[Rfam]
RNA: Alphaproteobacterial ar14
Nucleotides: 121
Base pairs, nucleotide, nucleotide: 002036003035004034006032007031008030045076046075047074048073049072050071051070052069053068054067085116086115087114088113089112090111091110092109093108094107095106
Number, partner (000 for none) and nucleotide at each position: 001000g002036g003035g004034u005000g006032u007031c008030g009000g010000c011000c012000a013000u014000c015000u016000a017000c018000u019000c020000c021000u022000c023000c024000c025000a026000g027000a028000u029000g030008c031007g032006a033000u034004g035003c036002c037000g038000g039000c040000a041000c042000a043000g044000c045076g046075a047074a048073u049072g050071c051070g052069g053068u054067g055000c056000a057000c058000c059000u060000c061000c062000u063000c064000c065000c066000g067054c068053a069052c070051u071050g072049c073048a074047u075046u076045u077000g078000a079000a080000a081000u082000c083000a084000g085116a086115g087114c088113c089112c090111g091110c092109u093108g094107c095106c096000a097000c098000c099000u100000c101000c102000u103000c104000c105000c106095g107094g108093c109092a110091g111090c112089g113088g114087g115086c116085u117000u118000u119000u120000u121000c